[Rfam]
RNA sequence: CAUCCGUCACAACGGCUUCCUGGCGUGGCGGCGAAGAACCCAAUGGAGCA
Numbered sequence: 001c002a003u004c005c006g007u008c009a010c011a012a013c014g015g016c017u018u019c020c021u022g023g024c025g026u027g028g029c030g031g032c033g034a035a036g037a038a039c040c041c042a043a044u045g046g047a048g049c050a
Base pairs, nucleotide, nucleotide: 004031005030006029007028008027009026010025013022014021015049016048017047019046020045
Dot-bracket structure: ...(((((((..(([[[.[[))..))))))).............]]]]].